[Rfam]
RNA: mir-1 microRNA precursor family
Organism: Rhynchophorus ferrugineus
RNA sequence: CGGCCAGUUCCGUGCUUCUCUACUUCCCAUAGUGAUAUUCAACGUAUGGAAUGUAAAGAAGUAUGGAGCGGAGUU
Numbered sequence: 001c002g003g004c005c006a007g008u009u010c011c012g013u014g015c016u017u018c019u020c021u022a023c024u025u026c027c028c029a030u031a032g033u034g035a036u037a038u039u040c041a042a043c044g045u046a047u048g049g050a051a052u053g054u055a056a057a058g059a060a061g062u063a064u065g066g067a068g069c070g071g072a073g074u075u
Base pairs, nucleotide, nucleotide: 007069008068009067010066011065012064013063014062015061016060017059018058019057021055022054023053025051027049028048029047030046031045